[Rfam]
RNA: Bacterial RNase P class A
RNA sequence: UCAGGUCGCCGGACGGUCGCGGCAGCAGAUGCUGACGAGGAACGUCCGGGCUCCACAGAGCACGGCGGUGGGUAACGCCCACCCGGGGCAACUCGCGGGACAGUGCCACAGAAAGCAGACCGCCGGUCAUCGGCCGGUAAGGGUGAAAGGGUGGUGUAAGAGACCACCGGGUGCCAGGUGACUGGGAUCGCACGGUAAACCCCGCCGGGAGCAAGAUCGCACAGACAGCGCCUGACGGCUGCUCGCUGAAGCUGUCGGGUAGAUCGCUUGAGGGCACCGGCAACGGUGCUCCUAGACAGAUGACCGUCACGCAGACCGGGGCGACCCGCCUGCGGACAGAACCCGGCGUACAGGCGGCCUGACCUC
Numbered sequence: 001u002c003a004g005g006u007c008g009c010c011g012g013a014c015g016g017u018c019g020c021g022g023c024a025g026c027a028g029a030u031g032c033u034g035a036c037g038a039g040g041a042a043c044g045u046c047c048g049g050g051c052u053c054c055a056c057a058g059a060g061c062a063c064g065g066c067g068g069u070g071g072g073u074a075a076c077g078c079c080c081a082c083c084c085g086g087g088g089c090a091a092c093u094c095g096c097g098g099g100a101c102a103g104u105g106c107c108a109c110a111g112a113a114a115g116c117a118g119a120c121c122g123c124c125g126g127u128c129a130u131c132g133g134c135c136g137g138u139a140a141g142g143g144u145g146a147a148a149g150g151g152u153g154g155u156g157u158a159a160g161a162g163a164c165c166a167c168c169g170g171g172u173g174c175c176a177g178g179u180g181a182c183u184g185g186g187a188u189c190g191c192a193c194g195g196u197a198a199a200c201c202c203c204g205c206c207g208g209g210a211g212c213a214a215g216a217u218c219g220c221a222c223a224g225a226c227a228g229c230g231c232c233u234g235a236c237g238g239c240u241g242c243u244c245g246c247u248g249a250a251g252c253u254g255u256c257g258g259g260u261a262g263a264u265c266g267c268u269u270g271a272g273g274g275c276a277c278c279g280g281c282a283a284c285g286g287u288g289c290u291c292c293u294a295g296a297c298a299g300a301u302g303a304c305c306g307u308c309a310c311g312c313a314g315a316c317c318g319g320g321g322c323g324a325c326c327c328g329c330c331u332g333c334g335g336a337c338a339g340a341a342c343c344c345g346g347c348g349u350a351c352a353g354g355c356g357g358c359c360u361g362a363c364c365u366c
Base pairs, nucleotide, nucleotide: 001362002361003360004359005358006357007356008355009354010353011351012308013307014306015305016304017303018302020037021036023034024033025032026031042349043348044347046346047345048344049343050342051211052210053209054208058244059243060242061241063207064206065205066204067203068082069081070080071079072078083097084095085094086093087092098202099201103200104199105196106195107194120142121141122138123137124136125135126134127133128132150168151167152166153165154164155163169191170189171188172187174185175184176183177182215265216264217263218262224256225255226254227253228252229251236248237247238246239245272291273290274289275288276287277286278285279284